RNA sequence: GCCGAGCUCAGUUACGCGGGCUUGUAACCCUUGUGGGGGCUUUAAGAUGAUUGGAUGGUUGGACUUGUCCAGUUGCUGGGCCUGCGAUUGCUUAUGCGGGUCUGCCCGUUCCAAGUGGGGAGUUGGGUCAUGCGGUCCAAGCGAAAGUUUGGGCUACGUGAUCCUUAGUGCGGAGGGCACAGCGUCAGGCUGGUUUCACAGAGCAGCGAACACCUCCCGCUCUCUACAGUGGAAGGAUAACAGGCCGCCGCUUUCCAGGCCCAUUAAAAGCUUCAUGGGCUUGUCCCAAUUGAACAAUCAUUUUU
Numbered sequence: 001g002c003c004g005a006g007c008u009c010a011g012u013u014a015c016g017c018g019g020g021c022u023u024g025u026a027a028c029c030c031u032u033g034u035g036g037g038g039g040c041u042u043u044a045a046g047a048u049g050a051u052u053g054g055a056u057g058g059u060u061g062g063a064c065u066u067g068u069c070c071a072g073u074u075g076c077u078g079g080g081c082c083u084g085c086g087a088u089u090g091c092u093u094a095u096g097c098g099g100g101u102c103u104g105c106c107c108g109u110u111c112c113a114a115g116u117g118g119g120g121a122g123u124u125g126g127g128u129c130a131u132g133c134g135g136u137c138c139a140a141g142c143g144a145a146a147g148u149u150u151g152g153g154c155u156a157c158g159u160g161a162u163c164c165u166u167a168g169u170g171c172g173g174a175g176g177g178c179a180c181a182g183c184g185u186c187a188g189g190c191u192g193g194u195u196u197c198a199c200a201g202a203g204c205a206g207c208g209a210a211c212a213c214c215u216c217c218c219g220c221u222c223u224c225u226a227c228a229g230u231g232g233a234a235g236g237a238u239a240a241c242a243g244g245c246c247g248c249c250g251c252u253u254u255c256c257a258g259g260c261c262c263a264u265u266a267a268a269a270g271c272u273u274c275a276u277g278g279g280c281u282u283g284u285c286c287c288a289a290u291u292g293a294a295c296a297a298u299c300a301u302u303u304u305u
Stems, first nucleotide, its partner, number of pairs: 001040003004023006028037003044304010056292002059289003062285003067280001069278003075271003078262007087254001090251001092250001099246006106236002109234005115227009125164008134155009165170001172217005183208003190201003
A member of the RNA family "Plant signal recognition particle RNA" from Striga asiatica, 305 nucleotides long. Rfam links the family to the GO terms signal recognition particle, endoplasmic reticulum targeting and SRP-dependent cotranslational protein targeting to membrane, signal sequence recognition. Pairs were carried over by alignment from the consensus structure, which is taken from published work. A reference for the family is Wild et al. (2002), "Towards the structure of the mammalian signal recognition particle", Curr Opin Struct Biol. It scores 227 bits against the family's covariance model.